A member of the RNA family "tp2" from Erwinia sp. 198, 117 nucleotides long.

RNA sequence: GGUAUUCCUUAUCUGUGUCUAAUACGUUGAAUUGUCUGGAGCCUGUCUCUCUGUCCUCUGGCUCUGUACAGAACACAGAGAGACAGGCCCUUCGUGGUUGUCGCGUUAUGGUUACGC
Numbered sequence: 001g002g003u004a005u006u007c008c009u010u011a012u013c014u015g016u017g018u019c020u021a022a023u024a025c026g027u028u029g030a031a032u033u034g035u036c037u038g039g040a041g042c043c044u045g046u047c048u049c050u051c052u053g054u055c056c057u058c059u060g061g062c063u064c065u066g067u068a069c070a071g072a073a074c075a076c077a078g079a080g081a082g083a084c085a086g087g088c089c090c091u092u093c094g095u096g097g098u099u100g101u102c103g104c105g106u107u108a109u110g111g112u113u114a115c116g117c
Stems, first nucleotide, its partner, number of pairs: 001102004024095003038091002041088007050079005057072004
The source organism's lineage runs through Bacteria, Pseudomonadati, Pseudomonadota, Gammaproteobacteria and Erwinia.